[Rfam]
RNA sequence: UGAGCUGGCUGGGCGGCCGCGGCACCCCACAGUGUCGAGGAAAGUCCGGACUUCACAGAGCAGGGUGAUUGCUAACGGCAAUCCGAGGUGACUCGCGGGAAAGUGCCACAGAAAACAGACCGCCUCCACUGCGCCCCAAGCCUUCGGGCCCAAGGACGCUCCGGAGGUAAGGGUGAAAAGGUGCGGUAAGAGCGCACCAGCAUCCCGGGUGACCGGGGUGGCUUGGUAAACCCCACCCGAAGCAAGGCCAAGAAGGCCGCAACCUGGUUGCGGCCGCGCAGGCGUUCGAGGGUUGCUCGCCCGAGCCUGCGGGUAGGCCGCUCGAGGCACCCGGCGACGGUGUGUCCAGAUGGAUGGUCGCCGCCUCGCUGCCAGAGAUGGCCGUGAGGAACAGAAUCCGGCUUACAGGCCGGCUCAUCCG
Numbered sequence: 001u002g003a004g005c006u007g008g009c010u011g012g013g014c015g016g017c018c019g020c021g022g023c024a025c026c027c028c029a030c031a032g033u034g035u036c037g038a039g040g041a042a043a044g045u046c047c048g049g050a051c052u053u054c055a056c057a058g059a060g061c062a063g064g065g066u067g068a069u070u071g072c073u074a075a076c077g078g079c080a081a082u083c084c085g086a087g088g089u090g091a092c093u094c095g096c097g098g099g100a101a102a103g104u105g106c107c108a109c110a111g112a113a114a115a116c117a118g119a120c121c122g123c124c125u126c127c128a129c130u131g132c133g134c135c136c137c138a139a140g141c142c143u144u145c146g147g148g149c150c151c152a153a154g155g156a157c158g159c160u161c162c163g164g165a166g167g168u169a170a171g172g173g174u175g176a177a178a179a180g181g182u183g184c185g186g187u188a189a190g191a192g193c194g195c196a197c198c199a200g201c202a203u204c205c206c207g208g209g210u211g212a213c214c215g216g217g218g219u220g221g222c223u224u225g226g227u228a229a230a231c232c233c234c235a236c237c238c239g240a241a242g243c244a245a246g247g248c249c250a251a252g253a254a255g256g257c258c259g260c261a262a263c264c265u266g267g268u269u270g271c272g273g274c275c276g277c278g279c280a281g282g283c284g285u286u287c288g289a290g291g292g293u294u295g296c297u298c299g300c301c302c303g304a305g306c307c308u309g310c311g312g313g314u315a316g317g318c319c320g321c322u323c324g325a326g327g328c329a330c331c332c333g334g335c336g337a338c339g340g341u342g343u344g345u346c347c348a349g350a351u352g353g354a355u356g357g358u359c360g361c362c363g364c365c366u367c368g369c370u371g372c373c374a375g376a377g378a379u380g381g382c383c384g385u386g387a388g389g390a391a392c393a394g395a396a397u398c399c400g401g402c403u404u405a406c407a408g409g410c411c412g413g414c415u416c417a418u419c420c421g
Stems, first nucleotide, its partner, number of pairs: 001417010011406001012362007020037006042404003046401005051242004058298004063238005068082005083097001084095004098233002103231002105227003120172002122168006180198006200222001201220008246319004290302004326346005331340003
Dot-bracket structure: ((((((((((((((((((.((((((......))))))....[[[.[[[[[((((...[[[[.((((((((((.....)))))(((((....)))).)((...(((((............((((((((...................................))))))..)).......((((((.......)))))).(((((((((....)))))))).)..)))..)))))))))))))...((((........................................((((.]]]])))).............))))......((((((((....))).))))).........)))))))..................................]]]]]]]].).))))))))))....
The record is a 421-nucleotide RNA sequence from Mycolicibacterium austroafricanum, which matches "Bacterial RNase P class A" in Rfam.
Pairs were carried over by alignment from the consensus structure, which is taken from published work.
The organism belongs to Mycolicibacterium austroafricanum, within Bacteria.